[Rfam]
RNA sequence: UGCGCAACCUCGGGGUGCCCUUCUGGGCUGAGACGCGAUCCUGCGGACCCGUUGAACCUGAACCGGUUAACACCGGCGGAGGGAAGGUCGCGCUCCUGCUG
Numbered sequence: 001u002g003c004g005c006a007a008c009c010u011c012g013g014g015g016u017g018c019c020c021u022u023c024u025g026g027g028c029u030g031a032g033a034c035g036c037g038a039u040c041c042u043g044c045g046g047a048c049c050c051g052u053u054g055a056a057c058c059u060g061a062a063c064c065g066g067u068u069a070a071c072a073c074c075g076g077c078g079g080a081g082g083g084a085a086g087g088u089c090g091c092g093c094u095c096c097u098g099c100u101g
Base pairs, nucleotide, nucleotide: 007088008087009086010085011051012050013049014048016045017028018027019026020025035044036043037042057082058081059080063076064075065074066073

This 101-nucleotide RNA from Palleronia pontilimi belongs to the Rfam family "TPP riboswitch aptamer (THI element)".
Rfam describes the family as follows. Vitamin B(1) in its active form thiamin pyrophosphate (TPP) is an essential coenzyme that is synthesised by coupling of pyrimidine and thiazole moieties in bacteria.
NCBI's taxonomy places the organism under Bacteria, Pseudomonadati, Rhodobacterales, Roseobacteraceae, Palleronia.